[Rfam]
RNA sequence: AUUCGAUAUCGGCAAACCCGUUGAAAGACGGGGACGCAAAGCUACUGGUCUAACGGCGCAACGCCCAUGACAGCAGGGCUGCACGC
Numbered sequence: 001a002u003u004c005g006a007u008a009u010c011g012g013c014a015a016a017c018c019c020g021u022u023g024a025a026a027g028a029c030g031g032g033g034a035c036g037c038a039a040a041g042c043u044a045c046u047g048g049u050c051u052a053a054c055g056g057c058g059c060a061a062c063g064c065c066c067a068u069g070a071c072a073g074c075a076g077g078g079c080u081g082c083a084c085g086c
Base pairs, nucleotide, nucleotide: 012037013036017032018031019030020029021028022027040080041079042078043077045076046075047074048071049070050069055065056064057063058062

About this RNA: Shown here is an 86-nucleotide RNA sequence from Noviherbaspirillum sp. Root189, a member of the family "c-di-GMP-I riboswitch aptamer". About the family: GEMM was predicted in a large-scale screen for bacterial structured RNA regulatory elements. The source organism's lineage runs through Bacteria, Pseudomonadati, Betaproteobacteria, Oxalobacteraceae and Noviherbaspirillum. The base pairs follow the family's consensus structure, which is taken from published work. It scores 77 bits against the family's covariance model.